[Rfam]
RNA sequence: AGAACCUUUAACACAGUCCCGUGAGGCUGAGAAGGAAACGGAUAUCAGAAUGAAGCAAUGUUCUCCUAUCGCUAUAUAGGAUAUCUAUGCCCUCUCGCCAAAUAGGCAAGAGGGCUUUUUGUU
Numbered sequence: 001a002g003a004a005c006c007u008u009u010a011a012c013a014c015a016g017u018c019c020c021g022u023g024a025g026g027c028u029g030a031g032a033a034g035g036a037a038a039c040g041g042a043u044a045u046c047a048g049a050a051u052g053a054a055g056c057a058a059u060g061u062u063c064u065c066c067u068a069u070c071g072c073u074a075u076a077u078a079g080g081a082u083a084u085c086u087a088u089g090c091c092c093u094c095u096c097g098c099c100a101a102a103u104a105g106g107c108a109a110g111a112g113g114g115c116u117u118u119u120u121g122u123u
Stems, first nucleotide, its partner, number of pairs: 005035005014029005041070004047064006087117001089115007097107003

Overview:
Shown here is a 123-nucleotide sequence from Metabacillus arenae, a member of the family "PyrR binding site". Rfam's curators write: This family represents the PyrR binding site and terminator structure. Gene Ontology terms of the family: pyrimidine nucleobase transport and pyrimidine nucleobase biosynthetic process. The family's consensus secondary structure is taken from published work. For this family Rfam cites "Molecular recognition of pyr mRNA by the Bacillus subtilis attenuation regulatory protein PyrR" (Bonner et al., Nucleic Acids Res, 2001). The organism belongs to Metabacillus, within Bacteria. The match comes from Rfam's covariance-model search (56 bits). Rfam classes the family as a cis-regulatory element.